[Rfam]
RNA sequence: UCCUCCACAGUCCUCCGGCUCGUCUUUUCCGAAAGGAAUGUCUUUCAUAGACCCCUCGACAAGGGCUGGGAGGCCCCAGUACGCCGCUCACGACUCUGCAACAGGGCUUCGUGCUUGCUGUGAUUGGAUCCACUGGGACCUCGAGUCGUCAGUAUCAGACGACCCAGUCCGGCUGAGGGAAGACGGGUCGGAACUUAACCCUAAGCAUCACC
Numbered sequence: 001u002c003c004u005c006c007a008c009a010g011u012c013c014u015c016c017g018g019c020u021c022g023u024c025u026u027u028u029c030c031g032a033a034a035g036g037a038a039u040g041u042c043u044u045u046c047a048u049a050g051a052c053c054c055c056u057c058g059a060c061a062a063g064g065g066c067u068g069g070g071a072g073g074c075c076c077c078a079g080u081a082c083g084c085c086g087c088u089c090a091c092g093a094c095u096c097u098g099c100a101a102c103a104g105g106g107c108u109u110c111g112u113g114c115u116u117g118c119u120g121u122g123a124u125u126g127g128a129u130c131c132a133c134u135g136g137g138a139c140c141u142c143g144a145g146u147c148g149u150c151a152g153u154a155u156c157a158g159a160c161g162a163c164c165c166a167g168u169c170c171g172g173c174u175g176a177g178g179g180a181a182g183a184c185g186g187g188u189c190g191g192a193a194c195u196u197a198a199c200c201c202u203a204a205g206c207a208u209c210a211c212c
Base pairs, nucleotide, nucleotide: 009195010194011193015191016190017189018188
Rfam assigns this 212-nucleotide part of an RNA from Verticillium dahliae to the family "Ascomycota telomerase RNA". Taxonomically the source falls in Verticillium dahliae (Eukaryota, saccharomyceta, Sordariomycetes, Verticillium). The pairing is the family consensus, mapped onto this sequence. For this family Rfam cites "The common ancestral core of vertebrate and fungal telomerase RNAs" (Qi et al., Nucleic Acids Res, 2013). The family is grouped with related families in Rfam's "Telomerase clan". It scores 342 bits against the family's covariance model. By type it is a non-coding RNA gene.